This 92-nucleotide RNA from Profundibacterium mesophilum belongs to the Rfam family "Rhodo-rpoB RNA".
The family's consensus secondary structure is taken from published work.
[Rfam]
RNA sequence: GGAUCGGGAGGUGGCCUGUGGGAAGGCCGCCAGGUAUUGAUCCGGCCCCCCGUUUCGUAAAGGCCCAUCGCCCGUAGCCCGGCGGCCGAUGG
Number, nucleotide and partner (000 for none) at each position: 001g043002g042003a041004u040005c039006g000007g000008g000009a000010g031011g030012u029013g028014g027015c026016c025017u024018g000019u000020g000021g000022g000023a000024a017025g016026g015027c014028c013029g012030c011031c010032a000033g000034g000035u000036a000037u000038u000039g005040a004041u003042c002043c001044g000045g000046c000047c000048c000049c000050c000051c000052g000053u000054u000055u000056c000057g000058u000059a000060a000061a000062g000063g000064c000065c092066c091067a090068u089069c000070g087071c000072c085073c084074g083075u000076a000077g000078c000079c000080c000081g000082g000083c074084g073085g072086c000087c070088g000089a068090u067091g066092g065